RNA sequence: UCCUAUGCUGUGACACUCUAGAGGGAUGUGCAUUCUGUGGUCUGAAAGAAAAGAACGCACGUCCUUUUAGAUGGGUACUGUUUAAGA
Numbered sequence: 001u002c003c004u005a006u007g008c009u010g011u012g013a014c015a016c017u018c019u020a021g022a023g024g025g026a027u028g029u030g031c032a033u034u035c036u037g038u039g040g041u042c043u044g045a046a047a048g049a050a051a052a053g054a055a056c057g058c059a060c061g062u063c064c065u066u067u068u069a070g071a072u073g074g075g076u077a078c079u080g081u082u083u084a085a086g087a
Base pairs, nucleotide, nucleotide: 001087002086004084005083007081008080010078011077012076014074017071018070020068021067022066023065024064025063026062027061028060029059030058031057033055034054035053038052
Background: Rfam assigns this 87-nucleotide RNA sequence from Cebus imitator to the family "mir-515 microRNA precursor family". On this family, see Bentwich et al., Nat Genet 2005: "Identification of hundreds of conserved and nonconserved human microRNAs". It scores 74 bits against the family's covariance model. Pairs were carried over by alignment from the consensus structure, which was predicted with RNAalifold. Rfam links the family to the GO terms RISC complex and miRNA-mediated post-transcriptional gene silencing. Its Rfam clan is "mir-290 clan".